[Rfam]
RNA sequence: GUAACAGGGGGAGCGAUUAGACAAAGGGGUAGAGCUACAUAUUAGAUAGCUGUAUAAUCGUUCAAGUUACAUCAAAACAUCUUCAAUAUUUAUUACUUACUUUCCUUUCUAUUUGUCGGCUAGUUAUUGACUAGCCGAUUUUUUA
Dot-bracket structure: (((((.....(((((((((...[[[[[[[...(((((.........)))))...)))))))))..)))))...............................]]]]]]]......(((((((((.......)))))))))......